[Rfam]
RNA sequence: CGAUAUAUGGAAUGAGUAAGCACAGUUUUUUCCAUGCUUGCAUGAAAAACUGUGCUUAUGAAAUGACAUAACGGACAUGAGGAAAGAAGGAGUGCGAACGAAGUGAGUGCGACGAUUUCCGAAUGUCCGUAGGAUUGCGGGAGCGCGUCAGCGCGGAGCAAUCCGUAUAUCG
Numbered sequence: 001c002g003a004u005a006u007a008u009g010g011a012a013u014g015a016g017u018a019a020g021c022a023c024a025g026u027u028u029u030u031u032c033c034a035u036g037c038u039u040g041c042a043u044g045a046a047a048a049a050c051u052g053u054g055c056u057u058a059u060g061a062a063a064u065g066a067c068a069u070a071a072c073g074g075a076c077a078u079g080a081g082g083a084a085a086g087a088a089g090g091a092g093u094g095c096g097a098a099c100g101a102a103g104u105g106a107g108u109g110c111g112a113c114g115a116u117u118u119c120c121g122a123a124u125g126u127c128c129g130u131a132g133g134a135u136u137g138c139g140g141g142a143g144c145g146c147g148u149c150a151g152c153g154c155g156g157a158g159c160a161a162u163c164c165g166u167a168u169a170u171c172g
Base pairs, nucleotide, nucleotide: 001172002171003170004169005168006167007166011064013062016059017058018057019056020055021054022053023052024051025050026049027048028047029046030045033044034043035042036041071130072129073128074127075126076125077124078123081120082119083118084117089113092110093109094108095107132164133163134162135161136160137159138158143154144153145152146151

Overview:
The record is a 172-nucleotide RNA sequence from Butyrivibrio sp. M55, which matches "Clostridiales-1 RNA" in Rfam. NCBI's taxonomy places the organism under Bacteria, Bacillota, Clostridia, Lachnospiraceae, Butyrivibrio. The family's consensus secondary structure is taken from published work.